The family of this 87-nucleotide RNA sequence from Gossypium schwendimanii is "MIR7486 microRNA precursor family". Lineage of the source: Eukaryota > Euphyllophyta > eudicotyledons > Malvaceae > Gossypium.
[Rfam]
RNA sequence: CACGUCAGCGCGCUUUGCUGACGUUACAGAAAAUCGCGUCCUAGAGGGCGCGAUUUGUUGCCAUGUCAGCAAAGCGCGUUGACGUGG
Numbered sequence: 001c002a003c004g005u006c007a008g009c010g011c012g013c014u015u016u017g018c019u020g021a022c023g024u025u026a027c028a029g030a031a032a033a034u035c036g037c038g039u040c041c042u043a044g045a046g047g048g049c050g051c052g053a054u055u056u057g058u059u060g061c062c063a064u065g066u067c068a069g070c071a072a073a074g075c076g077c078g079u080u081g082a083c084g085u086g087g
Stems, first nucleotide, its partner, number of pairs: 001086021023064002027060003031056008040047002